mir-395 microRNA precursor family: a 109-nucleotide RNA sequence from Dichanthelium oligosanthes. The match comes from Rfam's covariance-model search (83 bits). Its family is annotated with miRNA-mediated post-transcriptional gene silencing and RISC complex in the Gene Ontology. The family has 25 seed sequences and 2,798 matches in Rfam 15.1. The family's consensus secondary structure was predicted with PFOLD. Lineage of the source: Eukaryota > Streptophyta > Tracheophyta > Mesangiospermae > Dichanthelium. For this family Rfam cites "Computational Identification of Plant MicroRNAs and Their Targets, Including a Stress-Induced miRNA" (Jones-Rhoades and Bartel, Mol Cell, 2004).

RNA sequence: GUGUUACCAGGAGUUUCCUUCAAGCACUUCACAUGGAGAUUUAUAUCGCGUUGGCGAAAAGUCGCGUCUGGAACCAAUGUGAAGUGUUUGGGGAAACUCUUGGUGUCAA
Numbered sequence: 001g002u003g004u005u006a007c008c009a010g011g012a013g014u015u016u017c018c019u020u021c022a023a024g025c026a027c028u029u030c031a032c033a034u035g036g037a038g039a040u041u042u043a044u045a046u047c048g049c050g051u052u053g054g055c056g057a058a059a060a061g062u063c064g065c066g067u068c069u070g071g072a073a074c075c076a077a078u079g080u081g082a083a084g085u086g087u088u089u090g091g092g093g094a095a096a097c098u099c100u101u102g103g104u105g106u107c108a109a
Base pairs, nucleotide, nucleotide: 005105006104007103008102009101011099012098013097014096015095016094017093018092019091020090022089023088024087025086026085027084028083029082030081031080032079033078034077036075
Dot-bracket structure: ....(((((.((((((((((.(((((((((((((.(......................................).))))))))))))))))))))))).)))))....